Background
The family of this 74-nucleotide RNA sequence from Sphingomonas sp. G-3-2-10 is "tRNA". It is annotated as a transfer RNA. Gene Ontology term of the family: triplet codon-amino acid adaptor activity. Lineage of the source: Bacteria > Pseudomonadati > Pseudomonadota > Sphingomonadaceae > Sphingomonas.
RNA sequence: GCGCCCGUAGCUCAGCUGGAUAGAGCACAUGCCUUCUAAGCCUGUGGUCGUUGGUUCGAAUCCAACCGGGCGCG
Numbered sequence: 001g002c003g004c005c006c007g008u009a010g011c012u013c014a015g016c017u018g019g020a021u022a023g024a025g026c027a028c029a030u031g032c033c034u035u036c037u038a039a040g041c042c043u044g045u046g047g048u049c050g051u052u053g054g055u056u057c058g059a060a061u062c063c064a065a066c067c068g069g070g071c072g073c074g
Stems, first nucleotide, its partner, number of pairs: 001073007010026004028044002031041002050066005